Shown here is a 316-nucleotide RNA from Phoenix dactylifera, a member of the family "Plant signal recognition particle RNA". The base pairs follow the family's consensus structure, which is taken from published work. The family's RNA type in Rfam is non-coding RNA gene.
Nucleotides: 316
Base pairs, nucleotide, nucleotide: 001045002044003043004023005022006021007020008019009018010017028042029041030040031039049315050314051313052312053311054310055309056308057307065303066302067300070296071295075291077289078288079287080286081285082284083283084282085281086280088274089273090272091271092270093269094268099265101263110259111258112257113256114255115254116253118248119247121246122245123244124243125242127239128238130236131235132234134233135232136231137176138175139174140173141172142171143170144169145168146167148165149164150163151162152161153160154159177182184229185228186227187226188225195220196219197218202213203212204211
Number, partner (000 for none) and nucleotide at each position: 001045a002044c003043c004023g005022a006021g007020c008019u009018u010017c011000g012000u013000a014000g015000c016000g017010g018009g019008a020007g021006c022005u023004u024000a025000u026000u027000a028042c029041u030040c031039g032000a033000g034000c035000c036000a037000a038000u039031u040030g041029g042028g043003g044002g045001u046000a047000u048000u049315a050314a051313a052312g053311u054310g055309g056308u057307u058000u059000a060000u061000a062000g063000g064000a065303c066302g067300c068000u069000g070296g071295g072000u073000c074000a075291c076000g077289c078288u079287c080286g081285u082284g083283a084282g085281u086280c087000u088274g089273g090272g091271u092270g093269c094268a095000a096000a097000u098000g099265g100000a101263g102000c103000g104000u105000a106000a107000g108000g109000u110259u111258g112257g113256c114255u115254c116253g117000c118248c119247c120000g121246u122245u123244c124243c125242a126000a127239g128238u129000g130236g131235g132234g133000u134233a135232g136231c137176g138175g139174g140173a141172u142171g143170u144169g145168c146167g147000c148165c149164u150163u151162g152161a153160g154159c155000g156000a157000a158000a159154g160153c161152u162151u163150g164149g165148g166000u167146c168145g169144c170143g171142c172141a173140u174139c175138u176137c177182u178000u179000g180000a181000g182177g183000c184229g185228g186227a187226g188225g189000g190000a191000a192000c193000c194000g195220c196219g197218u198000g199000a200000g201000g202213c203212u204211g205000g206000u207000u208000u209000c210000a211204c212203a213202g214000a215000g216000c217000a218197g219196c220195g221000a222000a223000c224000a225188c226187c227186u228185c229184u230000c231136g232135c233134u234132c235131u236130c237000a238128a239127c240000g241000g242125u243124g244123g245122a246121a247119g248118g249000a250000c251000a252000a253116c254115g255114g256113g257112c258111c259110g260000c261000c262000g263101c264000c265099c266000c267000a268094u269093g270092u271091a272090c273089c274088c275000u276000c277000u278000a279000u280086g281085g282084c283083u284082c285081g286080c287079g288078g289077g290000c291075g292000c293000u294000c295071c296070c297000a298000a299000u300067g301000g302066c303065g304000g305000a306000c307057g308056a309055c310054c311053a312052c313051u314050u315049u316000u
NCBI's taxonomy places the organism under Eukaryota, Viridiplantae, commelinids, Arecales, Phoenix.
The match comes from Rfam's covariance-model search (188 bits).